RNA sequence: UGCCUUAUGAUUACAAACUUUGCUGAUUCCUGCCCACCCGAAGGCGUCAGAGAUCUGGGAAGGUGUCCCGGGUUGAGGACGACGUCGACAACGGUGGGAACUAUGAUACAGAUUAUGAGAGAUGAGGGCU
Dot-bracket structure: .((((...........................((((((....((((((...(((..(((......)))...)))..))....))))......))))))...((((((....))))))........)))).
Numbered sequence: 001u002g003c004c005u006u007a008u009g010a011u012u013a014c015a016a017a018c019u020u021u022g023c024u025g026a027u028u029c030c031u032g033c034c035c036a037c038c039c040g041a042a043g044g045c046g047u048c049a050g051a052g053a054u055c056u057g058g059g060a061a062g063g064u065g066u067c068c069c070g071g072g073u074u075g076a077g078g079a080c081g082a083c084g085u086c087g088a089c090a091a092c093g094g095u096g097g098g099a100a101c102u103a104u105g106a107u108a109c110a111g112a113u114u115a116u117g118a119g120a121g122a123u124g125a126g127g128g129c130u
Stems, first nucleotide, its partner, number of pairs: 002129004033098006043086004047078002052074003057068003102117006
This 130-nucleotide sequence from Caenorhabditis latens belongs to the Rfam family "Caenorhabditis sRNA ceN56".
It scores 115 bits against the family's covariance model.
A reference for the family is Jia et al. (2007), "Systematic identification of non-coding RNA 2,2,7-trimethylguanosine cap structures in Caenorhabditis elegans", BMC Mol Biol.
NCBI's taxonomy places the organism under Eukaryota, Eumetazoa, Rhabditina, Rhabditoidea, Caenorhabditis.